A member of the RNA family "Guanidine-II riboswitch aptamer (mini-ykkC)" from Glutamicibacter creatinolyticus, 45 nucleotides long. Its family is annotated with regulation of gene expression in the Gene Ontology. The base pairs follow the family's consensus structure, which is taken from published work. The match comes from Rfam's covariance-model search (45 bits).

[Rfam]
RNA sequence: CGGGCGGGACGACCCGUCCGCUCGCUCGACAUGGGGACGACCCCA
Numbered sequence: 001c002g003g004g005c006g007g008g009a010c011g012a013c014c015c016g017u018c019c020g021c022u023c024g025c026u027c028g029a030c031a032u033g034g035g036g037a038c039g040a041c042c043c044c045a
Base pairs, nucleotide, nucleotide: 001020002019003018004017005016006015007014008013032045033044034043035042036041
Dot-bracket structure: ((((((((....))))))))...........(((((....)))))